[Rfam]
RNA sequence: CUACUCCCUCUGUCCCAGAAUAUAAGAACGUUUUUGACAGUAUGCUAGUGUUAAAAACGUUCUUAUAUUUUGGGACGGAGGGAGUAC
Numbered sequence: 001c002u003a004c005u006c007c008c009u010c011u012g013u014c015c016c017a018g019a020a021u022a023u024a025a026g027a028a029c030g031u032u033u034u035u036g037a038c039a040g041u042a043u044g045c046u047a048g049u050g051u052u053a054a055a056a057a058c059g060u061u062c063u064u065a066u067a068u069u070u071u072g073g074g075a076c077g078g079a080g081g082g083a084g085u086a087c
Base pairs, nucleotide, nucleotide: 003085004084005083007081008080009079010078011077013075014074015073016072017071019069020068021067022066023065024064025063026062027061028060029059030058031057032056033055034054035053036052037051038050039049041047
RNA: MIR1120/MIR1122 microRNA precursor family
Organism: Triticum aestivum